[Rfam]
RNA sequence: CGUUGCCUCGCGCAACAUGCCAAUGUCCCUGUGAUCUGAGAGGGACGCCUUCGGGUGAUCACAUGCCAAUGCCACCUUGACCUGAGAGGUGGCGCCUUCGGGCGGUACCCUCGUUUAACCUUUGAAAACGAGGAUCGCAACAGCGAUGAAGGUUCAC
Numbered sequence: 001c002g003u004u005g006c007c008u009c010g011c012g013c014a015a016c017a018u019g020c021c022a023a024u025g026u027c028c029c030u031g032u033g034a035u036c037u038g039a040g041a042g043g044g045a046c047g048c049c050u051u052c053g054g055g056u057g058a059u060c061a062c063a064u065g066c067c068a069a070u071g072c073c074a075c076c077u078u079g080a081c082c083u084g085a086g087a088g089g090u091g092g093c094g095c096c097u098u099c100g101g102g103c104g105g106u107a108c109c110c111u112c113g114u115u116u117a118a119c120c121u122u123u124g125a126a127a128a129c130g131a132g133g134a135u136c137g138c139a140a141c142a143g144c145g146a147u148g149a150a151g152g153u154u155c156a157c
Stems, first nucleotide, its partner, number of pairs: 002016005025046005031062006047056003071093005080106003094103003110132005117154006134147005

This 157-nucleotide sequence from Prodigiosinella confusarubida belongs to the Rfam family "STAXI RNA".
A search with the family's covariance model found it, with a score of 115 bits.
The source organism's lineage runs through Bacteria, Pseudomonadati, Gammaproteobacteria, Enterobacterales and Prodigiosinella.